[Rfam]
RNA sequence: GUGCUAUGAUGUAUUUGUUUAACCCCUCAUUCUGAAAAAAAGAAAAAAUGUGGUUAAUCACUGAAACUGAGCACA
Number, nucleotide and partner (000 for none) at each position: 001g074002u073003g072004c071005u000006a000007u000008g000009a000010u000011g000012u000013a000014u000015u000016u000017g000018u000019u000020u000021a000022a000023c000024c000025c000026c000027u000028c000029a000030u000031u000032c000033u000034g000035a000036a000037a000038a000039a000040a000041a000042g000043a000044a000045a000046a000047a000048a000049u000050g000051u000052g000053g000054u000055u000056a000057a000058u000059c000060a000061c000062u000063g000064a000065a000066a000067c000068u000069g000070a000071g004072c003073a002074c001075a000